[Rfam]
RNA sequence: UACAAUAGUUGAUUUCUACCGAAGACUCAGGUGACGAAAGUCUUAAUAUCCUGCCGAGGCCAGAAGAUUGUUAAAUAAUCUCUGUGCUCAUUCGGGUGCAGAGAUUUUAUUUUAUAGCC
Numbered sequence: 001u002a003c004a005a006u007a008g009u010u011g012a013u014u015u016c017u018a019c020c021g022a023a024g025a026c027u028c029a030g031g032u033g034a035c036g037a038a039a040g041u042c043u044u045a046a047u048a049u050c051c052u053g054c055c056g057a058g059g060c061c062a063g064a065a066g067a068u069u070g071u072u073a074a075a076u077a078a079u080c081u082c083u084g085u086g087c088u089c090a091u092u093c094g095g096g097u098g099c100a101g102a103g104a105u106u107u108u109a110u111u112u113u114a115u116a117g118c119c
Stems, first nucleotide, its partner, number of pairs: 028053004033042003079104010
The record is a 119-nucleotide RNA sequence from Companilactobacillus versmoldensis, which matches "Ribosomal protein L10 leader" in Rfam. Rfam classes the family as a cis-regulatory leader. The organism belongs to Companilactobacillus versmoldensis, within Bacteria. This family is a putative r-protein leader autoregulatory structure found in B. subtilis and other low-GC Gram-positive bacteria.